[Rfam]
RNA sequence: GAUUUUCUUCAGGGCAGGGUGUAAUUCCCGACCGGCGGUAUAGUCCGCGAGCGAAUAGAUAUUUGCUGACAUGGUGUAAUUCCAUGACCGACAGUAUAGUCUGGAAGGAAGAAGAAAAAC
Numbered sequence: 001g002a003u004u005u006u007c008u009u010c011a012g013g014g015c016a017g018g019g020u021g022u023a024a025u026u027c028c029c030g031a032c033c034g035g036c037g038g039u040a041u042a043g044u045c046c047g048c049g050a051g052c053g054a055a056u057a058g059a060u061a062u063u064u065g066c067u068g069a070c071a072u073g074g075u076g077u078a079a080u081u082c083c084a085u086g087a088c089c090g091a092c093a094g095u096a097u098a099g100u101c102u103g104g105a106a107g108g109a110a111g112a113a114g115a116a117a118a119a120c
Stems, first nucleotide, its partner, number of pairs: 003118008017029003031100002033090002035048004043088002051066003070086005092103003
Rfam assigns this 120-nucleotide RNA from Clostridium sp. MD294 to the family "FMN riboswitch aptamer (RFN element)". The source organism's lineage runs through Bacteria, Bacillati, Bacillota, Clostridia and Clostridium. It scores 124 bits against the family's covariance model. Gene Ontology term of the family: FMN binding.